[Rfam]
RNA sequence: UUUAGAACUCUAGAUACAGGCUAAAAACUGAAACGGGCUGUGACUUGUAAUAAACUUCUGGACAGAUUCGGAUUUCUCUGUUUCUUCUAAGUUUCAAACUUCAAAACGGCAGAACUAGGUUUUAGACUCUUCAUAAACAUUUUAGGCCUACCUCUUAGAUUUCCAGA
Numbered sequence: 001u002u003u004a005g006a007a008c009u010c011u012a013g014a015u016a017c018a019g020g021c022u023a024a025a026a027a028c029u030g031a032a033a034c035g036g037g038c039u040g041u042g043a044c045u046u047g048u049a050a051u052a053a054a055c056u057u058c059u060g061g062a063c064a065g066a067u068u069c070g071g072a073u074u075u076c077u078c079u080g081u082u083u084c085u086u087c088u089a090a091g092u093u094u095c096a097a098a099c100u101u102c103a104a105a106a107c108g109g110c111a112g113a114a115c116u117a118g119g120u121u122u123u124a125g126a127c128u129c130u131u132c133a134u135a136a137a138c139a140u141u142u143u144a145g146g147c148c149u150a151c152c153u154c155u156u157a158g159a160u161u162u163c164c165a166g167a
Stems, first nucleotide, its partner, number of pairs: 002166002005163003008158002012155003018149003021145005027140001040134003052130001054128001056126002060122004065116001067114003071110001073109002079103002085097001
A member of the RNA family "MIR2912 microRNA precursor family" from Carya illinoinensis, 167 nucleotides long. The base pairs follow the family's consensus structure, which was predicted with RNAalifold. The match comes from Rfam's covariance-model search (57 bits).